Rfam assigns this 45-nucleotide sequence from Desulfonema ishimotonii to the family "Acido-Lenti-1 RNA". The family's RNA type in Rfam is small RNA. NCBI's taxonomy places the organism under Bacteria, Pseudomonadati, Desulfobacteria, Desulfobacterales, Desulfonema.
RNA sequence: CCCGGUGCGCCGCACCGGGCUUUGAUAUUCCGCCCCUUCGGGGCU
Numbered sequence: 001c002c003c004g005g006u007g008c009g010c011c012g013c014a015c016c017g018g019g020c021u022u023u024g025a026u027a028u029u030c031c032g033c034c035c036c037u038u039c040g041g042g043g044c045u
Stems, first nucleotide, its partner, number of pairs: 001019008032044005